[Rfam]
RNA sequence: UUCUUAUCCAGAGCGGUUGAGGGACUGGCCCGAUGACACUGCGGCAACCACCCUAUCAGGGAAAGGUGCCAACUCCUGCUGGACAUAUGUCCAGGAAGAUGGGAA
Numbered sequence: 001u002u003c004u005u006a007u008c009c010a011g012a013g014c015g016g017u018u019g020a021g022g023g024a025c026u027g028g029c030c031c032g033a034u035g036a037c038a039c040u041g042c043g044g045c046a047a048c049c050a051c052c053c054u055a056u057c058a059g060g061g062a063a064a065g066g067u068g069c070c071a072a073c074u075c076c077u078g079c080u081g082g083a084c085a086u087a088u089g090u091c092c093a094g095g096a097a098g099a100u101g102g103g104a105a
Base pairs, nucleotide, nucleotide: 001105002104003103004102005101006100007099008098013042014041015040016039017038021031022030023029025078027076028075043070044069045068046067048066049065051061052060053059074097079094080093081092082091083090084089